[Rfam]
RNA sequence: UUACAUAUGAUGAAUUACUCGGAUUCCCCUUCAGGACAUCUUGGAUGAUGCAAAACCGAGUUUCUGAUGUA
Numbered sequence: 001u002u003a004c005a006u007a008u009g010a011u012g013a014a015u016u017a018c019u020c021g022g023a024u025u026c027c028c029c030u031u032c033a034g035g036a037c038a039u040c041u042u043g044g045a046u047g048a049u050g051c052a053a054a055a056c057c058g059a060g061u062u063u064c065u066g067a068u069g070u071a
Stems, first nucleotide, its partner, number of pairs: 002071004

Annotation
Rfam assigns this 71-nucleotide RNA from Helianthus annuus to the family "Small nucleolar RNA snoR60". Its family is annotated with RNA processing and nucleolus in the Gene Ontology. The source organism's lineage runs through Eukaryota, Streptophytina, Asteroideae, Heliantheae alliance and Helianthus. Clan: SNORD101 clan. Rfam 15.1 lists 1,133 matches to the family in 227 species. A search with the family's covariance model found it, with a score of 90 bits. The family's RNA type in Rfam is C/D-box small nucleolar RNA.